[Rfam]
RNA sequence: UGUGACACCCAUCAAAGGAGUCGUUCCCCAUCUAGGGGAUGCCUUACCAUGUUCCGAAUUC
Number, nucleotide and partner (000 for none) at each position: 001u000002g000003u000004g000005a000006c000007a000008c000009c000010c000011a000012u000013c000014a000015a000016a000017g045018g044019a000020g042021u041022c000023g000024u038025u037026c036027c035028c000029c000030a000031u000032c000033u000034a000035g027036g026037g025038g024039a000040u000041g021042c020043c000044u018045u017046a000047c000048c000049a000050u000051g000052u000053u000054c000055c000056g000057a000058a000059u000060u000061c000

Shown here is a 61-nucleotide RNA sequence from Gossypium anomalum, a member of the family "Plastid-psbN 5UTR RNA".
Plastid psbN is a non-coding RNA (ncRNA) recognised in plastids. It was reported as a conserved 11 stem-loop in the prime untranslated region (5UTR) of psbN genes. It has been reported that the motif is retained in a subset of mature transcripts in barley, which can suggests a possible role in transcript alternative 5 prime processing.
Pairs were carried over by alignment from the consensus structure, which was predicted with LocARNA.
Lineage of the source: Eukaryota > Spermatophyta > eudicotyledons > malvids > Gossypium.